[Rfam]
RNA: Archaeal large subunit ribosomal RNA, nucleotides 10 to 602
Organism: Ferroplasma acidarmanus
RNA sequence: UCAUACAAACUGCUUGGGGAAUGGUUUUGGUUUGAGAACCGAUGAAGGACGUGCCAAGCUGCGAUAUGCCUUGGGGAGGUGCAUGGAGCCAUUGAUCCAAGGAUUUCCGAAUGGGACUUCCUGUUUAACACUCCGAAAGGAGAGGGAACCCCGGGAAUUGAAACAUCUUAGUACCGGGAGGAAGAGAAAUCAAUAGAGAUACCGUUAGUAAAGGCGAUCGAAAGCGGUAGAGGGCAAACCGAAUCUUUUCUGUAAAGAAAUAGAUAUGUGGAGUACGGAUCUUUCUCAAUGCCUACUUUAGGAAUUCUAAAAAGUUGGAAAGCUUUACCAGAGAGGGUGAUAGUCCCCUGGAAGUAACUAAAGAGGCUACGAGGAAAGAUAUCCUGAGUACCAUGCGUCAUUAUUCGCGUGGGAAUAUGGGUGGCAUGAACAUCCAACCCUAAAUAUUACUCAAGUCCGAUAGCAAAGAAGUACCGUGAGGGAAAACUGAAAAGCAACCCGGAAGGGCUGUAAAAAGAGCCUGAAACCAAGCAGUGAAAACUUUAUAGGGCACUAAAGGAAUGAUCUCGAAAGAGGGACCGGUGUUCUAUAGU
Numbered sequence: 001u002c003a004u005a006c007a008a009a010c011u012g013c014u015u016g017g018g019g020a021a022u023g024g025u026u027u028u029g030g031u032u033u034g035a036g037a038a039c040c041g042a043u044g045a046a047g048g049a050c051g052u053g054c055c056a057a058g059c060u061g062c063g064a065u066a067u068g069c070c071u072u073g074g075g076g077a078g079g080u081g082c083a084u085g086g087a088g089c090c091a092u093u094g095a096u097c098c099a100a101g102g103a104u105u106u107c108c109g110a111a112u113g114g115g116a117c118u119u120c121c122u123g124u125u126u127a128a129c130a131c132u133c134c135g136a137a138a139g140g141a142g143a144g145g146g147a148a149c150c151c152c153g154g155g156a157a158u159u160g161a162a163a164c165a166u167c168u169u170a171g172u173a174c175c176g177g178g179a180g181g182a183a184g185a186g187a188a189a190u191c192a193a194u195a196g197a198g199a200u201a202c203c204g205u206u207a208g209u210a211a212a213g214g215c216g217a218u219c220g221a222a223a224g225c226g227g228u229a230g231a232g233g234g235c236a237a238a239c240c241g242a243a244u245c246u247u248u249u250c251u252g253u254a255a256a257g258a259a260a261u262a263g264a265u266a267u268g269u270g271g272a273g274u275a276c277g278g279a280u281c282u283u284u285c286u287c288a289a290u291g292c293c294u295a296c297u298u299u300a301g302g303a304a305u306u307c308u309a310a311a312a313a314g315u316u317g318g319a320a321a322g323c324u325u326u327a328c329c330a331g332a333g334a335g336g337g338u339g340a341u342a343g344u345c346c347c348c349u350g351g352a353a354g355u356a357a358c359u360a361a362a363g364a365g366g367c368u369a370c371g372a373g374g375a376a377a378g379a380u381a382u383c384c385u386g387a388g389u390a391c392c393a394u395g396c397g398u399c400a401u402u403a404u405u406c407g408c409g410u411g412g413g414a415a416u417a418u419g420g421g422u423g424g425c426a427u428g429a430a431c432a433u434c435c436a437a438c439c440c441u442a443a444a445u446a447u448u449a450c451u452c453a454a455g456u457c458c459g460a461u462a463g464c465a466a467a468g469a470a471g472u473a474c475c476g477u478g479a480g481g482g483a484a485a486a487c488u489g490a491a492a493a494g495c496a497a498c499c500c501g502g503a504a505g506g507g508c509u510g511u512a513a514a515a516a517g518a519g520c521c522u523g524a525a526a527c528c529a530a531g532c533a534g535u536g537a538a539a540a541c542u543u544u545a546u547a548g549g550g551c552a553c554u555a556a557a558g559g560a561a562u563g564a565u566c567u568c569g570a571a572a573g574a575g576g577g578a579c580c581g582g583u584g585u586u587c588u589a590u591a592g593u
Stems, first nucleotide, its partner, number of pairs: 009535009023521001024487002029458002031455006037448002047108003050063003069102006078090003113122003131142004149180001150178005160167002190197002201228005212218001231441004239271003248259004281378004291367002305353003311326005329333001335347003391412007419435005474481002544591010558580002566575003